This 117-nucleotide sequence from alpha proteobacterium BAL199 belongs to the Rfam family "ALIL pseudoknot".
NCBI's taxonomy places the organism under Bacteria, Pseudomonadati, Pseudomonadota, Alphaproteobacteria.
Rfam classes the family as a cis-regulatory element.
The family's consensus secondary structure is taken from published work.
[Rfam]
RNA sequence: GGCGUAUUUUGCGAUGGCGGAGCUCGACCGCCGGUUCAAGCCAUGAUCGCCUUCGUGGAGGAUCAUCGCGCCGAGUACGGGGUCGAGCCGAUCUGCAAGGUGCUGCCGAUCGCCCCG
Numbered sequence: 001g002g003c004g005u006a007u008u009u010u011g012c013g014a015u016g017g018c019g020g021a022g023c024u025c026g027a028c029c030g031c032c033g034g035u036u037c038a039a040g041c042c043a044u045g046a047u048c049g050c051c052u053u054c055g056u057g058g059a060g061g062a063u064c065a066u067c068g069c070g071c072c073g074a075g076u077a078c079g080g081g082g083u084c085g086a087g088c089c090g091a092u093c094u095g096c097a098a099g100g101u102g103c104u105g106c107c108g109a110u111c112g113c114c115c116c117g
Stems, first nucleotide, its partner, number of pairs: 016032005078117005089112002092109002095106003